[Rfam]
Annotation: This 146-nucleotide sequence from Peribacillus cavernae belongs to the Rfam family "c-di-AMP riboswitch aptamer (ydaO/yuaA leader)". The organism belongs to Peribacillus, within Bacteria.
RNA sequence: AUUUCUAUUUUGCUUAAUCCUUUGGAGCGGGGGACCCAUUUUUACGGUGACUUUUUCACUAGGGGUGAAUCCUAUUAAUGUAGGUAGGGCUACUCUUUUAGCCCGAAUCCGACAGCUAACCCCGUAAGCGUGAUGAGAGAGGAAGG
Dot-bracket structure: ..........((((...(((...)))((((((....(........................)(((.....((((......))))..((((..........))))...))).........)))))).))))................
The pairing is the family consensus, mapped onto this sequence.